[Rfam]
RNA sequence: GGGAGGUGAAGAAAAAAUUCAUUGGUCUGUUCAAUCCACUGAUGUAUUACAGUGAGAUGUUAAUAGUGAAUCCCGACAGGUUCUGAUCUU
Numbered sequence: 001g002g003g004a005g006g007u008g009a010a011g012a013a014a015a016a017a018u019u020c021a022u023u024g025g026u027c028u029g030u031u032c033a034a035u036c037c038a039c040u041g042a043u044g045u046a047u048u049a050c051a052g053u054g055a056g057a058u059g060u061u062a063a064u065a066g067u068g069a070a071u072c073c074c075g076a077c078a079g080g081u082u083c084u085g086a087u088c089u090u
Base pairs, nucleotide, nucleotide: 001090002089003088004087
The record is a 90-nucleotide sequence from Nyssa sinensis, which matches "Small nucleolar RNA snoR14" in Rfam. Gene Ontology terms of the family: nucleolus and RNA processing. On this family, see Brown et al., RNA 2001: "Multiple snoRNA gene clusters from Arabidopsis". The pairing is the family consensus, mapped onto this sequence. By type it is a C/D-box small nucleolar RNA. The organism belongs to Nyssa, within Eukaryota.